[Rfam]
RNA sequence: UGAGAUAGAAUCAACAUUUGGAUAUGCGAUUUUAAGCUGAUUCCAUCUCAUG
Numbered sequence: 001u002g003a004g005a006u007a008g009a010a011u012c013a014a015c016a017u018u019u020g021g022a023u024a025u026g027c028g029a030u031u032u033u034a035a036g037c038u039g040a041u042u043c044c045a046u047c048u049c050a051u052g
Stems, first nucleotide, its partner, number of pairs: 001050006008043006015036001017034001018029003